[Rfam]
RNA sequence: UGAUCAUAUUCUGCUCCCCUUAAACCAAGACCUCUAGGGAGGAUAAAUUACGUCUUUCAUAUCCAGUAGUGAGGGAUUACUGGAAAUAAAUAUCGCA
Number, nucleotide and partner (000 for none) at each position: 001u000002g000003a000004u000005c000006a000007u000008a000009u000010u000011c000012u000013g000014c041015u040016c039017c038018c037019c000020u000021u036022a035023a000024a000025c000026c000027a056028a055029g054030a053031c052032c000033u000034c000035u022036a021037g018038g017039g016040a015041g014042g000043a000044u000045a000046a000047a000048u000049u000050a000051c000052g031053u030054c029055u028056u027057u000058c000059a000060u000061a000062u084063c083064c082065a081066g080067u079068a078069g000070u000071g000072a000073g000074g000075g000076a000077u000078u068079a067080c066081u065082g064083g063084a062085a000086a000087u000088a000089a000090a000091u000092a000093u000094c000095g000096c000097a000
RNA: PhotoRC-II RNA